[Rfam]
RNA sequence: UUAAUAGAUGGUGAUGGAGUUCACCGAUAAAUCUGUAAAUCAUACAGUAAUGACUCCUGUUAUAUU
Numbered sequence: 001u002u003a004a005u006a007g008a009u010g011g012u013g014a015u016g017g018a019g020u021u022c023a024c025c026g027a028u029a030a031a032u033c034u035g036u037a038a039a040u041c042a043u044a045c046a047g048u049a050a051u052g053a054c055u056c057c058u059g060u061u062a063u064a065u066u
Stems, first nucleotide, its partner, number of pairs: 010025004016057006033047004
Background:
The record is a 66-nucleotide RNA sequence from Megamonas hypermegale, which matches "Fluoride riboswitch aptamer (crcB RNA motif)" in Rfam. Gene Ontology terms of the family: positive regulation of gene expression and response to fluoride. Pairs were carried over by alignment from the consensus structure, which is taken from published work. The source organism's lineage runs through Bacteria, Bacillati, Bacillota, Selenomonadaceae and Megamonas.